[Rfam]
RNA sequence: CAUCGCGAUGCUCUUCUAUCAUGGAGAGAUCGUGAUGAGGAUACUUUCAAAACGCCAGGUCAAGGAAUUAGUCUUGUACUCACCGCAACACAUCGCACGUCUGGAGAAGGCAGGCCUAUUCCCCAAGCGGGUACAGCUGGGUCCGAACCGCGUGGGUUGGUUGGAGAGUGAGGUGCUGGAUUGGCUCGAAGAACGGCUUGCGCGCCGCGAGGUGCCGAACUGACACUCCUGAAAGGGAGCUGGGUGGUCGGGGUUGCAAACCCG
Numbered sequence: 001c002a003u004c005g006c007g008a009u010g011c012u013c014u015u016c017u018a019u020c021a022u023g024g025a026g027a028g029a030u031c032g033u034g035a036u037g038a039g040g041a042u043a044c045u046u047u048c049a050a051a052a053c054g055c056c057a058g059g060u061c062a063a064g065g066a067a068u069u070a071g072u073c074u075u076g077u078a079c080u081c082a083c084c085g086c087a088a089c090a091c092a093u094c095g096c097a098c099g100u101c102u103g104g105a106g107a108a109g110g111c112a113g114g115c116c117u118a119u120u121c122c123c124c125a126a127g128c129g130g131g132u133a134c135a136g137c138u139g140g141g142u143c144c145g146a147a148c149c150g151c152g153u154g155g156g157u158u159g160g161u162u163g164g165a166g167a168g169u170g171a172g173g174u175g176c177u178g179g180a181u182u183g184g185c186u187c188g189a190a191g192a193a194c195g196g197c198u199u200g201c202g203c204g205c206c207g208c209g210a211g212g213u214g215c216c217g218a219a220c221u222g223a224c225a226c227u228c229c230u231g232a233a234a235g236g237g238a239g240c241u242g243g244g245u246g247g248u249c250g251g252g253g254u255u256g257c258a259a260a261c262c263c264g
Base pairs, nucleotide, nucleotide: 001037002036003035004034005033006032007031008030009029012027013026014025015024016023055200057198058197060195065187066186068184069183070182071181072180073179074178077175078174079173080172081170082169084166086164088162091159092158094156096154097153098152101150103148109143110142111141113138114137115136121131122130123129204248205247206246207245208244220243221242222241226239227238228237229236230235251263252262253261
RNA: Ruegeria trans44 sRNA
Organism: Roseovarius gaetbuli